[Rfam]
RNA sequence: AUUGCAGACUUAUCUUAUCGACUUGUGUAUGCAAGUAGGAAAGUCCGGACACCAAAGAGUAUCAUAGCGGAUAACAUCCGUCCAGCGAGAGCUGAGGACCAGUGCAACAGAAAGAAUGUACAGUUAGGCUGUAGUGAAACCAGGUAAACUCUAUGAGGUGCAAUGCCAUGUAUAUUAGAGCUUGAGAGCUACUCGCUCGAUUCUAAAGGGUAGGCAGAUAGAUUCUAAGAGUAAUUUUAGAACUAGAUAAAUGAUAAGAGCCUUUUUAAGGUACAGGAUUCGGCUUAUUAGUCUGCAUUUUCU
Numbered sequence: 001a002u003u004g005c006a007g008a009c010u011u012a013u014c015u016u017a018u019c020g021a022c023u024u025g026u027g028u029a030u031g032c033a034a035g036u037a038g039g040a041a042a043g044u045c046c047g048g049a050c051a052c053c054a055a056a057g058a059g060u061a062u063c064a065u066a067g068c069g070g071a072u073a074a075c076a077u078c079c080g081u082c083c084a085g086c087g088a089g090a091g092c093u094g095a096g097g098a099c100c101a102g103u104g105c106a107a108c109a110g111a112a113a114g115a116a117u118g119u120a121c122a123g124u125u126a127g128g129c130u131g132u133a134g135u136g137a138a139a140c141c142a143g144g145u146a147a148a149c150u151c152u153a154u155g156a157g158g159u160g161c162a163a164u165g166c167c168a169u170g171u172a173u174a175u176u177a178g179a180g181c182u183u184g185a186g187a188g189c190u191a192c193u194c195g196c197u198c199g200a201u202u203c204u205a206a207a208g209g210g211u212a213g214g215c216a217g218a219u220a221g222a223u224u225c226u227a228a229g230a231g232u233a234a235u236u237u238u239a240g241a242a243c244u245a246g247a248u249a250a251a252u253g254a255u256a257a258g259a260g261c262c263u264u265u266u267u268a269a270g271g272u273a274c275a276g277g278a279u280u281c282g283g284c285u286u287a288u289u290a291g292u293c294u295g296c297a298u299u300u301u302c303u
Base pairs, nucleotide, nucleotide: 001299003297004296005295006294007293008292009291010290012288013259014258015257016256017255018254019253021036022035023034024033025032026031041286042285043284045283046282047281048280049279050160051159052158053157057194058193059192060191062156063155064154065153066152067081068080069079070078071077082096083094084093085092086091097151098150102149103148104145105144119133120132121131122130123129124128164216165215166214167213175206176205177204178203179202186198187197188196189195223242224241225240226239227238228237229236230235